[Rfam]
RNA sequence: CUUGAUCGAACCGAGGAGCAGUGGCUGCCCCUCCGCCCGCUCCUGGCCGUACGUCGCCAGCAGCGCCUGCGCCUC
Numbered sequence: 001c002u003u004g005a006u007c008g009a010a011c012c013g014a015g016g017a018g019c020a021g022u023g024g025c026u027g028c029c030c031c032u033c034c035g036c037c038c039g040c041u042c043c044u045g046g047c048c049g050u051a052c053g054u055c056g057c058c059a060g061c062a063g064c065g066c067c068u069g070c071g072c073c074u075c
Stems, first nucleotide, its partner, number of pairs: 014026002031071001033069001038065002043060003047056001049054001
RNA: ASpks TB sRNA